This 237-nucleotide RNA sequence from Microvirga sp. VF16 belongs to the Rfam family "Group II catalytic intron D1-D4-6". Taxonomically the source falls in Microvirga (Bacteria, Pseudomonadati, Pseudomonadota, Alphaproteobacteria). Rfam describes the family as follows. Group II introns are found in rRNA, tRNA and mRNA of organelles in fungi, plants and protists, and also in mRNA in bacteria. The base pairs follow the family's consensus structure.

[Rfam]
RNA sequence: AGAUGGCGGCCGCGGCAAAGCCUAGCGAGCAGCCGCGAACCGAGUCUUGCGCGGCGUCCGGUAACGGCCGUUGCGAAGCGUAGACAGGGAGGUUGUAGGCCGGAAUGAAGUGAACGGGAAUAUAGCCCCGAAAUCGAACGUGAUCGGAGUAGCCGACCCUGUCUCUCUAAGGGGAAGGCGGAAUCGCAUGCCGCGUUAGUGCGAGUGGUAUGCGGUGCUCCCGGGGUUCGUACCGCC
Number, nucleotide and partner (000 for none) at each position: 001a000002g000003a000004u000005g000006g000007c000008g000009g000010c000011c000012g036013c035014g034015g033016c032017a000018a000019a000020g030021c029022c000023u204024a000025g202026c201027g000028a000029g021030c020031a000032g016033c015034c014035g013036c012037g000038a000039a000040c088041c087042g000043a000044g085045u084046c083047u082048u080049g079050c075051g074052c073053g072054g071055c070056g069057u000058c067059c066060g065061g000062u000063a000064a000065c060066g059067g058068c000069c056070g055071u054072u053073g052074c051075g050076a000077a000078g000079c049080g048081u000082a047083g046084a045085c044086a000087g041088g040089g000090a000091g000092g000093u000094u000095g000096u000097a000098g000099g000100c000101c000102g000103g000104a000105a000106u000107g000108a000109a000110g000111u000112g000113a000114a000115c000116g000117g000118g000119a000120a000121u000122a231123u000124a000125g227126c226127c225128c224129c223130g222131a000132a000133a000134u000135c000136g000137a000138a000139c000140g000141u000142g000143a000144u000145c000146g221147g220148a219149g218150u217151a216152g179153c178154c177155g000156a000157c173158c172159c171160u170161g000162u000163c000164u000165c000166u000167c000168u000169a000170a160171g159172g158173g157174g000175a000176a000177g154178g153179c152180g000181g000182a000183a000184u215185c214186g213187c212188a211189u210190g209191c208192c207193g206194c205195g000196u000197u000198a000199g000200u000201g026202c025203g000204a023205g194206u193207g192208g191209u190210a189211u188212g187213c186214g185215g184216u151217g150218c149219u148220c147221c146222c130223g129224g128225g127226g126227u125228u000229c000230g000231u122232a000233c000234c000235g000236c000237c000